RNA sequence: GGCGGCGUGGCCGAGUGGCUUAGGCAAGGGACUGCAAAUCCCUGUACGGGGGGUUCGAUUCCCCCCCGCCGCC
Numbered sequence: 001g002g003c004g005g006c007g008u009g010g011c012c013g014a015g016u017g018g019c020u021u022a023g024g025c026a027a028g029g030g031a032c033u034g035c036a037a038a039u040c041c042c043u044g045u046a047c048g049g050g051g052g053g054u055u056c057g058a059u060u061c062c063c064c065c066c067c068g069c070c071g072c073c
Stems, first nucleotide, its partner, number of pairs: 001073007009065001010025003014021002027043005050064004
Selenocysteine transfer RNA: a 73-nucleotide sequence from Aquihabitans sp. G128. On this family, see Mizutani and Goto, FEBS Lett 2000: "Eukaryotic selenocysteine tRNA has the 9/4 secondary structure".